[Rfam]
RNA sequence: CCGCAUCCCCGGGGGAGCGCUGUGACGGCGCUUGAGAGGGCGGCACGAGCCGUCGACCCGCUGAACCUGAUCCGGUUAAGACCGGCGGAGGGAGGGAAGCGGUCUUCGCC
Dot-bracket structure: .....((((((((..(((((.......)))))......(((((......)))))..)))).....(((...((((......))))...)))..)))).............
Numbered sequence: 001c002c003g004c005a006u007c008c009c010c011g012g013g014g015g016a017g018c019g020c021u022g023u024g025a026c027g028g029c030g031c032u033u034g035a036g037a038g039g040g041c042g043g044c045a046c047g048a049g050c051c052g053u054c055g056a057c058c059c060g061c062u063g064a065a066c067c068u069g070a071u072c073c074g075g076u077u078a079a080g081a082c083c084g085g086c087g088g089a090g091g092g093a094g095g096g097a098a099g100c101g102g103u104c105u106u107c108g109c110c
Stems, first nucleotide, its partner, number of pairs: 006097004010060004016032005039054005066091003072085004
This 110-nucleotide RNA from Croceibacterium atlanticum belongs to the Rfam family "TPP riboswitch aptamer (THI element)". The base pairs follow the family's consensus structure, which is taken from published work. Lineage of the source: Bacteria > Alphaproteobacteria > Sphingomonadales > Erythrobacteraceae > Croceibacterium. The match comes from Rfam's covariance-model search (57 bits).